Shown here is a 97-nucleotide RNA from Succinatimonas hippei, a member of the family "Bacterial small signal recognition particle RNA".
RNA sequence: AGGCAGCCCUCUCGUACUUAGGCUUAGUUUAAUUGGUCAGGAUCGGAAGGUAGCAGCCAGGAUUAGGUUUUAAGGUACCGAGAACAGGUUGUCUGUU
Number, nucleotide and partner (000 for none) at each position: 001a000002g000003g000004c091005a090006g089007c088008c087009c000010u083011c082012u081013c080014g079015u075016a000017c074018u073019u072020a071021g070022g069023c067024u066025u065026a064027g063028u062029u061030u000031a000032a000033u060034u059035g058036g057037u056038c000039a000040g000041g000042a051043u050044c049045g000046g000047a000048a000049g044050g043051u042052a000053g000054c000055a000056g037057c036058c035059a034060g033061g029062a028063u027064u026065a025066g024067g023068u000069u022070u021071u020072a019073a018074g017075g015076u000077a000078c000079c014080g013081a012082g011083a010084a000085c000086a000087g008088g007089u006090u005091g004092u000093c000094u000095g000096u000097u000
Rfam describes the family as follows. The signal recognition particle (SRP) is a universally conserved ribonucleoprotein involved in the co-translational targeting of proteins to membranes. The organism belongs to Succinatimonas hippei, within Bacteria.